[Rfam]
RNA sequence: CGAAACUUGCGAGGGUUCUUCUUUAGUACGAGAGGAUUUAGAAGGACGACCCUCUGGUGUUCCUGUUGUCGCGCUAGCGGCACGGCAGGAUAGCUAAGGUCGGAACGGAUAAACGCUGAAAGCAUCUAAGCGUGAAGCCCGCCUCAAGAUUAGGUUUCGUUGGUCAAUGACCGAAAGUCCCCUGGAAGACGACCAGGUUGAUAGGCCGGAUGUGUAAGCUCAGCAAUGGGUUCAGCUAACCGGUACUAACGGACGAAC
Numbered sequence: 001c002g003a004a005a006c007u008u009g010c011g012a013g014g015g016u017u018c019u020u021c022u023u024u025a026g027u028a029c030g031a032g033a034g035g036a037u038u039u040a041g042a043a044g045g046a047c048g049a050c051c052c053u054c055u056g057g058u059g060u061u062c063c064u065g066u067u068g069u070c071g072c073g074c075u076a077g078c079g080g081c082a083c084g085g086c087a088g089g090a091u092a093g094c095u096a097a098g099g100u101c102g103g104a105a106c107g108g109a110u111a112a113a114c115g116c117u118g119a120a121a122g123c124a125u126c127u128a129a130g131c132g133u134g135a136a137g138c139c140c141g142c143c144u145c146a147a148g149a150u151u152a153g154g155u156u157u158c159g160u161u162g163g164u165c166a167a168u169g170a171c172c173g174a175a176a177g178u179c180c181c182c183u184g185g186a187a188g189a190c191g192a193c194c195a196g197g198u199u200g201a202u203a204g205g206c207c208g209g210a211u212g213u214g215u216a217a218g219c220u221c222a223g224c225a226a227u228g229g230g231u232u233c234a235g236c237u238a239a240c241c242g243g244u245a246c247u248a249a250c251g252g253a254c255g256a257a258c
Stems, first nucleotide, its partner, number of pairs: 001159008011145004017045006047102005055096003062089005067082006107139002113133005162172003177254004181197005202248003205244005212236001218231005

Shown here is a 258-nucleotide part of an RNA from Pseudobythopirellula maris, a member of the family "Bacterial large subunit ribosomal RNA". The family's consensus secondary structure is taken from published work. The source organism's lineage runs through Bacteria, Pseudomonadati, Planctomycetota, Planctomycetia and Pseudobythopirellula.